[Rfam]
RNA sequence: CCUCCGCCUUCCCCGCACAGGAAGGCGGAUAGAGGACCGAGGCGCUCUCUGCCCUGACUGCGCCGCGGCCUCAGAUCGGCCGGACCGGGCGCCGCGAGGAACCGCACACCUCACGGCGUGCCCCGGCCGAUGUCAGCUCCGGGCUGCGGUGCCGGACAGGUUGAGGGUCCUGUCCCGGCGC
Numbered sequence: 001c002c003u004c005c006g007c008c009u010u011c012c013c014c015g016c017a018c019a020g021g022a023a024g025g026c027g028g029a030u031a032g033a034g035g036a037c038c039g040a041g042g043c044g045c046u047c048u049c050u051g052c053c054c055u056g057a058c059u060g061c062g063c064c065g066c067g068g069c070c071u072c073a074g075a076u077c078g079g080c081c082g083g084a085c086c087g088g089g090c091g092c093c094g095c096g097a098g099g100a101a102c103c104g105c106a107c108a109c110c111u112c113a114c115g116g117c118g119u120g121c122c123c124c125g126g127c128c129g130a131u132g133u134c135a136g137c138u139c140c141g142g143g144c145u146g147c148g149g150u151g152c153c154g155g156a157c158a159g160g161u162u163g164a165g166g167g168u169c170c171u172g173u174c175c176c177g178g179c180g181c
Stems, first nucleotide, its partner, number of pairs: 003029004008024005032072004037068001039066001041064002044061002046057002076130007136150003140146002154175007
Overview:
The family of this 181-nucleotide RNA from Streptomyces sp. Ru73 is "Streptomyces sRNA scr5239". Rfam links the family to the GO terms mRNA binding and negative regulation of translation. A search with the family's covariance model found it, with a score of 114 bits. A reference for the family is Vockenhuber and Suess (2012), "Streptomyces coelicolor sRNA scr5239 inhibits agarase expression by direct base pairing to the dagA coding region", Microbiology.